[Rfam]
RNA sequence: UUUAGGAAGAGGAAGAGAAGAGGAUCUAAGAGCAGUAGGAAUGGGAAUAUAUAGGAAAAGCUUAGGUGCUCCUCCUACAAUGGAGGCUGGUACUUGGAGUUUUCCCAAUGCCCUCUCAUUCCUGUGGCUCUUAGGUGCUCCUUGCUCCUUUGGCU
Numbered sequence: 001u002u003u004a005g006g007a008a009g010a011g012g013a014a015g016a017g018a019a020g021a022g023g024a025u026c027u028a029a030g031a032g033c034a035g036u037a038g039g040a041a042u043g044g045g046a047a048u049a050u051a052u053a054g055g056a057a058a059a060g061c062u063u064a065g066g067u068g069c070u071c072c073u074c075c076u077a078c079a080a081u082g083g084a085g086g087c088u089g090g091u092a093c094u095u096g097g098a099g100u101u102u103u104c105c106c107a108a109u110g111c112c113c114u115c116u117c118a119u120u121c122c123u124g125u126g127g128c129u130c131u132u133a134g135g136u137g138c139u140c141c142u143u144g145c146u147c148c149u150u151u152g153g154c155u
Stems, first nucleotide, its partner, number of pairs: 009150005016143002020140003025135009036124011048110003054105006
Dot-bracket structure: ........(((((..((..(((..(((((((((..(((((((((((.(((...((((((........................................))))))..)))...)))))))))))..)))))))))..))).))..))))).....
RNA: MIR2118 microRNA precursor family
Organism: Brachypodium distachyon